[Rfam]
RNA sequence: CGGGUUGGCCAGGCAAUCGCGUCGGCGCGGAUUCCUUUUGGGGAAAACGCUGCCGCCGAGGAAAGUCCGGGCUCCGCAGGGCAGGGUGGUGGGUAACGCCCACUCGGGGAAACCCGCAGGCCAGUGCCACAGAAAAGAAACCGCCGGCUUAUGCUGCUUUGCAGCCUGAGCAGGUAAGGGUGAAAAGGCGGUGUAAGAGACCACCAGCGUCCCGGGUGACCGGGACGGCUAGGUAAACCCCACCCGGAGCAAGGCCAUACAGGACACGUUUGAGGGCUGCCCGCCCGAUGUGUCCGGGUAGGCCGCUUGAGGCAGCCGGCAACGGCGGCCCUAGAUGGAUGAUUGCCGCUCCCGGUCCGGUAACGGUCCGGGCGUACAAAACCCGGCUUAUCGGCCAGCCCGUCCA
Numbered sequence: 001c002g003g004g005u006u007g008g009c010c011a012g013g014c015a016a017u018c019g020c021g022u023c024g025g026c027g028c029g030g031a032u033u034c035c036u037u038u039u040g041g042g043g044a045a046a047a048c049g050c051u052g053c054c055g056c057c058g059a060g061g062a063a064a065g066u067c068c069g070g071g072c073u074c075c076g077c078a079g080g081g082c083a084g085g086g087u088g089g090u091g092g093g094u095a096a097c098g099c100c101c102a103c104u105c106g107g108g109g110a111a112a113c114c115c116g117c118a119g120g121c122c123a124g125u126g127c128c129a130c131a132g133a134a135a136a137g138a139a140a141c142c143g144c145c146g147g148c149u150u151a152u153g154c155u156g157c158u159u160u161g162c163a164g165c166c167u168g169a170g171c172a173g174g175u176a177a178g179g180g181u182g183a184a185a186a187g188g189c190g191g192u193g194u195a196a197g198a199g200a201c202c203a204c205c206a207g208c209g210u211c212c213c214g215g216g217u218g219a220c221c222g223g224g225a226c227g228g229c230u231a232g233g234u235a236a237a238c239c240c241c242a243c244c245c246g247g248a249g250c251a252a253g254g255c256c257a258u259a260c261a262g263g264a265c266a267c268g269u270u271u272g273a274g275g276g277c278u279g280c281c282c283g284c285c286c287g288a289u290g291u292g293u294c295c296g297g298g299u300a301g302g303c304c305g306c307u308u309g310a311g312g313c314a315g316c317c318g319g320c321a322a323c324g325g326c327g328g329c330c331c332u333a334g335a336u337g338g339a340u341g342a343u344u345g346c347c348g349c350u351c352c353c354g355g356u357c358c359g360g361u362a363a364c365g366g367u368c369c370g371g372g373c374g375u376a377c378a379a380a381a382c383c384c385g386g387c388u389u390a391u392c393g394g395c396c397a398g399c400c401c402g403u404c405c406a
Base pairs, nucleotide, nucleotide: 001402002401003400004399005398006397007396008395009394010393011391012347013346014345015344016343017342018341020058021057023055024054025053026052027051063389064388065387067386068385069384070383071382072249073248074247075246079282080281081280082279084245085244086243087242088241089103090102091101092100093099104118105116106115107114108113119240120239124238125237126234127233128232141179142178143175144174145173147171148170149169150168151167187205188204190202191201192200207229208227209226210225211224212223213222214221215220253304254303255302256301262295263294264293265292266291267290274286275285276284277283311330312329313328315326316325317324318323

A member of the RNA family "Bacterial RNase P class A" from Arthrobacter yangruifuii, 406 nucleotides long. Rfam classes the family as a ribozyme. The organism belongs to Arthrobacter, within Bacteria. A search with the family's covariance model found it, with a score of 311 bits.